[Rfam]
Nucleotides: 069
Stems, first nucleotide, its partner, number of pairs: 002069005
Number, partner (000 for none) and nucleotide at each position: 001000g002069g003068c004067a005066c006065a007000a008000a009000u010000g011000a012000u013000g014000a015000a016000u017000g018000a019000c020000a021000a022000g023000g024000g025000a026000c027000u028000u029000a030000a031000u032000a033000c034000u035000g036000a037000a038000a039000c040000c041000u042000g043000a044000u045000g046000u047000u048000a049000c050000a051000u052000u053000a054000c055000a056000a057000u058000g059000u060000g061000c062000u063000g064000a065006u066005g067004u068003g069002c